[Rfam]
RNA sequence: ACAAAAGUGAGGAGGCAGUUUAUAAGAUUGUCUCUUCAUGGGAAAGAACUUUGAGGUAUAUCAAAAUCAAAGGCCGAGAUAUCGUUUUAGUCGUCAUUUUCCUCCAUUGGCAGUCUGAUUGUUGCUCGUCCACAC
Numbered sequence: 001a002c003a004a005a006a007g008u009g010a011g012g013a014g015g016c017a018g019u020u021u022a023u024a025a026g027a028u029u030g031u032c033u034c035u036u037c038a039u040g041g042g043a044a045a046g047a048a049c050u051u052u053g054a055g056g057u058a059u060a061u062c063a064a065a066a067u068c069a070a071a072g073g074c075c076g077a078g079a080u081a082u083c084g085u086u087u088u089a090g091u092c093g094u095c096a097u098u099u100u101c102c103u104c105c106a107u108u109g110g111c112a113g114u115c116u117g118a119u120u121g122u123u124g125c126u127c128g129u130c131c132a133c134a135c
Base pairs, nucleotide, nucleotide: 007039008038009037010036011035012034013033014032015031016030017029072131073130075128076127077126078125081119082118083117084116090114091113093111094110095109096108098106

Background
This 135-nucleotide RNA from Corchorus capsularis belongs to the Rfam family "Small nucleolar RNA snoR111". NCBI's taxonomy places the organism under Eukaryota, Streptophytina, Tracheophyta, Mesangiospermae, Corchorus. The literature on the family includes a 2002 paper in Curr Biol by Marker et al., "Experimental RNomics: identification of 140 candidates for small non-messenger RNAs in the plant Arabidopsis thaliana". Its family is annotated with nucleolus and RNA processing in the Gene Ontology. A search with the family's covariance model found it, with a score of 78 bits. The base pairs follow the family's consensus structure, which was predicted with WAR.